This 130-nucleotide sequence from Phyllostomus discolor belongs to the Rfam family "Small nucleolar RNA SNORA30/SNORA37 family". Rfam classes the family as an H/ACA-box small nucleolar RNA. Lineage of the source: Eukaryota > Metazoa > Gnathostomata > Boreoeutheria > Phyllostomus. Rfam 15.1 lists 407 matches to the family in 132 species. Rfam links the family to the GO terms RNA processing and nucleolus. On this family, see Huttenhofer et al., EMBO J 2001: "RNomics: an experimental approach that identifies 201 candidates for novel, small, non-messenger RNAs in mouse". The members of this family belong to the H/ACA class of snoRNAs that guide the sites of modification of uridines to pseudouridines.
[Rfam]
RNA sequence: AGAGCACUUUCACAGGUCCUCCCCCUGGCAGUGGGGCCAGGAUUUGGUAGCUGGUGCUGAAAGAAAAACCCUUGGGUGCAUCCUUGCCCUGGGCCUGUGCCAGUGGCAGCUGUCACUCAGUGGCACAGAG
Numbered sequence: 001a002g003a004g005c006a007c008u009u010u011c012a013c014a015g016g017u018c019c020u021c022c023c024c025c026u027g028g029c030a031g032u033g034g035g036g037c038c039a040g041g042a043u044u045u046g047g048u049a050g051c052u053g054g055u056g057c058u059g060a061a062a063g064a065a066a067a068a069c070c071c072u073u074g075g076g077u078g079c080a081u082c083c084u085u086g087c088c089c090u091g092g093g094c095c096u097g098u099g100c101c102a103g104u105g106g107c108a109g110c111u112g113u114c115a116c117u118c119a120g121u122g123g124c125a126c127a128g129a130g
Stems, first nucleotide, its partner, number of pairs: 003058006013046003017042004022036004069123002072120004077115002080113002084109005089103004